[Rfam]
Shown here is a 219-nucleotide RNA from Azorhizobium oxalatiphilum, a member of the family "Bradyrhizobiaceae sRNA BjrC174". On this family, see Madhugiri et al., RNA Biol 2012: "Small RNAs of the Bradyrhizobium/Rhodopseudomonas lineage and their analysis". Taxonomically the source falls in Azorhizobium (Bacteria, Pseudomonadota, Hyphomicrobiales, Xanthobacteraceae).

RNA sequence: AUCACGCGCUCGUCACUCGCGAACACAGUCUUGCCGGAAUUCGGUCAAGGCAUCGACAAGGGCCGGGAUCAUCUUCAGACCCGUAGCAGGGCCGGUUCGCCGCCCCUCCGGUCUAUCCCAGCCCCCCAGCCCCCCGGGGUGGUGCGAACCGGCCACUGCUACACUCCAAAAAUCUUGAGAAUUCGAGCCUGUUCGCGGUCGCAGCGGACAGGCUCUUUU
Numbered sequence: 001a002u003c004a005c006g007c008g009c010u011c012g013u014c015a016c017u018c019g020c021g022a023a024c025a026c027a028g029u030c031u032u033g034c035c036g037g038a039a040u041u042c043g044g045u046c047a048a049g050g051c052a053u054c055g056a057c058a059a060g061g062g063c064c065g066g067g068a069u070c071a072u073c074u075u076c077a078g079a080c081c082c083g084u085a086g087c088a089g090g091g092c093c094g095g096u097u098c099g100c101c102g103c104c105c106c107u108c109c110g111g112u113c114u115a116u117c118c119c120a121g122c123c124c125c126c127c128a129g130c131c132c133c134c135c136g137g138g139g140u141g142g143u144g145c146g147a148a149c150c151g152g153c154c155a156c157u158g159c160u161a162c163a164c165u166c167c168a169a170a171a172a173u174c175u176u177g178a179g180a181a182u183u184c185g186a187g188c189c190u191g192u193u194c195g196c197g198g199u200c201g202c203a204g205c206g207g208a209c210a211g212g213c214u215c216u217u218u219u
Base pairs, nucleotide, nucleotide: 036167037166038053041050042049083162084161085160086159087158088157089156090154091153092152093151094150095149096148097147098146099145100144103142104141106139107138108137109136110135111134121130122129185215186214187213188212189211190210191209192208193207194206195205196204